Group II catalytic intron D1-D4-4: a 138-nucleotide sequence.
[Rfam]
RNA sequence: CAGCGGGAGUUAGUCCCGCCAGGGAAGGAGUCAGGAGCCCUGUAGCUUGGGCCGCACGGGUGGAGGAAACGAAGCACGUGAAGCCGGCCGACAAAGCCGCCUUUGGGGCGGUGAGCGAGUCAUCGGGCCGCAACGCAA
Numbered sequence: 001c002a003g004c005g006g007g008a009g010u011u012a013g014u015c016c017c018g019c020c021a022g023g024g025a026a027g028g029a030g031u032c033a034g035g036a037g038c039c040c041u042g043u044a045g046c047u048u049g050g051g052c053c054g055c056a057c058g059g060g061u062g063g064a065g066g067a068a069a070c071g072a073a074g075c076a077c078g079u080g081a082a083g084c085c086g087g088c089c090g091a092c093a094a095a096g097c098c099g100c101c102u103u104u105g106g107g108g109c110g111g112u113g114a115g116c117g118a119g120u121c122a123u124c125g126g127g128c129c130g131c132a133a134c135g136c137a138a
Stems, first nucleotide, its partner, number of pairs: 020042005050089005055080004060075001065070001096112006115131003

Rfam links the family to the GO term Group II intron splicing.